[Rfam]
RNA sequence: AAACUCUUGUCGGAGUGCCGUAAGGCUGAGAUCGCGAAAGCGAGAUCCGUGGAACCUGUAGGUUAGUACCUGCGUAGGGAACAAGUUUUAACAUUCA
Numbered sequence: 001a002a003a004c005u006c007u008u009g010u011c012g013g014a015g016u017g018c019c020g021u022a023a024g025g026c027u028g029a030g031a032u033c034g035c036g037a038a039a040g041c042g043a044g045a046u047c048c049g050u051g052g053a054a055c056c057u058g059u060a061g062g063u064u065a066g067u068a069c070c071u072g073c074g075u076a077g078g079g080a081a082c083a084a085g086u087u088u089u090a091a092c093a094u095u096c097a
Base pairs, nucleotide, nucleotide: 006085007084008083009082010081011049012048013047014046016043017026018025019024033042034041035040055078056077057076058075059072060071061070062069